Description
This 352-nucleotide sequence from Blautia obeum belongs to the Rfam family "Bacterial RNase P class A". It is annotated as a ribozyme. It is one of the family's seed sequences. Pairs were carried over by alignment from the consensus structure, which is taken from published work.

[Rfam]
RNA sequence: CAAGCAGGUCAGGUGAUCGCGGCUGUACAGACGAAAGGGUGCAGACGAGGAAAGUCCGGGCUUCAAAGGGCAGGAUGCCGGAUAACGUCCGGUGGAGGUGACUCCCAGACCAGUGCAACAGAAAUAAACCGCCUUCUUUAUGGAAGGUAAGGGUGGAAAGGCAGUGUAAGAGACUACCGCCGUUGUGGUAACAGAACGGGCACAUGUAAACUCCAUUCGAAGCAAGACCGAAACGAAAGCAAUACGGCUGCCCGUCGUGCUUUCAGGUGGGUCGCUUGAGCCAUCUGGCAACGGAUGGCCUAGACAGAUGAUCACUCAACGACAUAACCCGGCUUAUCGGUCUGCUUGCAUA
Numbered sequence: 001c002a003a004g005c006a007g008g009u010c011a012g013g014u015g016a017u018c019g020c021g022g023c024u025g026u027a028c029a030g031a032c033g034a035a036a037g038g039g040u041g042c043a044g045a046c047g048a049g050g051a052a053a054g055u056c057c058g059g060g061c062u063u064c065a066a067a068g069g070g071c072a073g074g075a076u077g078c079c080g081g082a083u084a085a086c087g088u089c090c091g092g093u094g095g096a097g098g099u100g101a102c103u104c105c106c107a108g109a110c111c112a113g114u115g116c117a118a119c120a121g122a123a124a125u126a127a128a129c130c131g132c133c134u135u136c137u138u139u140a141u142g143g144a145a146g147g148u149a150a151g152g153g154u155g156g157a158a159a160g161g162c163a164g165u166g167u168a169a170g171a172g173a174c175u176a177c178c179g180c181c182g183u184u185g186u187g188g189u190a191a192c193a194g195a196a197c198g199g200g201c202a203c204a205u206g207u208a209a210a211c212u213c214c215a216u217u218c219g220a221a222g223c224a225a226g227a228c229c230g231a232a233a234c235g236a237a238a239g240c241a242a243u244a245c246g247g248c249u250g251c252c253c254g255u256c257g258u259g260c261u262u263u264c265a266g267g268u269g270g271g272u273c274g275c276u277u278g279a280g281c282c283a284u285c286u287g288g289c290a291a292c293g294g295a296u297g298g299c300c301u302a303g304a305c306a307g308a309u310g311a312u313c314a315c316u317c318a319a320c321g322a323c324a325u326a327a328c329c330c331g332g333c334u335u336a337u338c339g340g341u342c343u344g345c346u347u348g349c350a351u352a
Base pairs, nucleotide, nucleotide: 001348002347003346004345005344006343007342008341009340010339011337012316013315014314015313016312017311018310020047021046023044024043025042026041027040028039052335053334054333056332057331058330059329060328061222062221063220064219068253069252070251071250073218074217075216076215077214078092079091080090081089082088093107094105095104096103097102108213109212113211114210115207116206117205129152130151131148132147133146134145135144136143137142160178161177163175164174165173179201180199181198182197183196184195186193187192226273227272228271229270235264236263237262238261239260240259244258245257246256247255248254280299281298282297283296284295285294286293287292